[Rfam]
RNA sequence: AACUUUUUUGUUGCGCAAUUUUGAGGCAGCGGCUACAAAGACCUCACGGCCGCUCAACCUCCUCCCUGAACGGCCGAAUCGAAUGAACGCCUGCCGCACCUCCUCCCGCGGCAGGCGUUUUUC
Numbered sequence: 001a002a003c004u005u006u007u008u009u010g011u012u013g014c015g016c017a018a019u020u021u022u023g024a025g026g027c028a029g030c031g032g033c034u035a036c037a038a039a040g041a042c043c044u045c046a047c048g049g050c051c052g053c054u055c056a057a058c059c060u061c062c063u064c065c066c067u068g069a070a071c072g073g074c075c076g077a078a079u080c081g082a083a084u085g086a087a088c089g090c091c092u093g094c095c096g097c098a099c100c101u102c103c104u105c106c107c108g109c110g111g112c113a114g115g116c117g118u119u120u121u122u123c
Base pairs, nucleotide, nucleotide: 006040007039008038010036011035013033014032047076048075049074050073051072052071054069087118088117089116090115091114092113093112094111095110096109097108

A member of the RNA family "Alphaproteobacterial ar14" from Tianweitania populi, 123 nucleotides long. Rfam links the family to the GO term biological process involved in symbiotic interaction. It is annotated as a small RNA. Rfam's curators write: Smr14C2 was renamed NfeR1 (Nodule Formation Efficiency RNA) highly expressed in salt stress and during the symbiotic interaction on legume roots. It scores 60 bits against the family's covariance model. The source organism's lineage runs through Bacteria, Pseudomonadota, Hyphomicrobiales, Phyllobacteriaceae and Tianweitania.